[Rfam]
RNA sequence: AACCACGGCCGCAACUGGCGAACUGAGGUGGGUGACCACCGGGGAGCGGCCGGCAGAACCCCUCACAUCGGCGCCGCUCGCCUGGGCGCCGGGG
Numbered sequence: 001a002a003c004c005a006c007g008g009c010c011g012c013a014a015c016u017g018g019c020g021a022a023c024u025g026a027g028g029u030g031g032g033u034g035a036c037c038a039c040c041g042g043g044g045a046g047c048g049g050c051c052g053g054c055a056g057a058a059c060c061c062c063u064c065a066c067a068u069c070g071g072c073g074c075c076g077c078u079c080g081c082c083u084g085g086g087c088g089c090c091g092g093g094g
Stems, first nucleotide, its partner, number of pairs: 006052007015043002017082005028039004071089005
Rfam assigns this 94-nucleotide sequence from Actinomycetales bacterium JB111 to the family "ZMP/ZTP riboswitch aptamer (pfl RNA motif)". Taxonomically the source falls in Actinomycetales (Bacteria, Bacillati, Actinomycetota, Actinomycetes). The family's consensus secondary structure is taken from published work.